[Rfam]
RNA sequence: UCCCUGCUUUCCAUCAGCGGGGGUUACUGAAGAGGCACACCUUCAUUGCCGGAAGUGCGGUUGGGAAUCUCCCUCCAAUCCAAGGCAGACAAAGCCGGAUCCAUGUCGCUUAUGCGGCGUUGAUUCAUCAUUCGCGCUAUCAAGCGCUUGCUAAGGU
Numbered sequence: 001u002c003c004c005u006g007c008u009u010u011c012c013a014u015c016a017g018c019g020g021g022g023g024u025u026a027c028u029g030a031a032g033a034g035g036c037a038c039a040c041c042u043u044c045a046u047u048g049c050c051g052g053a054a055g056u057g058c059g060g061u062u063g064g065g066a067a068u069c070u071c072c073c074u075c076c077a078a079u080c081c082a083a084g085g086c087a088g089a090c091a092a093a094g095c096c097g098g099a100u101c102c103a104u105g106u107c108g109c110u111u112a113u114g115c116g117g118c119g120u121u122g123a124u125u126c127a128u129c130a131u132u133c134g135c136g137c138u139a140u141c142a143a144g145c146g147c148u149u150g151c152u153a154a155g156g157u
Stems, first nucleotide, its partner, number of pairs: 001023008034050004057137003084096002104119005
Notes: Shown here is a 157-nucleotide RNA sequence from Rhizobium sp. P32RR-XVIII, a member of the family "speF leader". From the family's description: This family is a putative regulatory RNA structure that is found upstream of the speF gene encoding ornithine decarboxylase in Agrobacterium tumefaciens and other alpha-proteobacteria. Rfam classes the family as a cis-regulatory leader. Its family is annotated with regulation of gene expression in the Gene Ontology. Pairs were carried over by alignment from the consensus structure, which was predicted with RNAalifold. For this family Rfam cites "Evidence for a second class of S-adenosylmethionine riboswitches and other regulatory RNA motifs in alpha-proteobacteria" (Corbino et al., Genome Biol, 2005).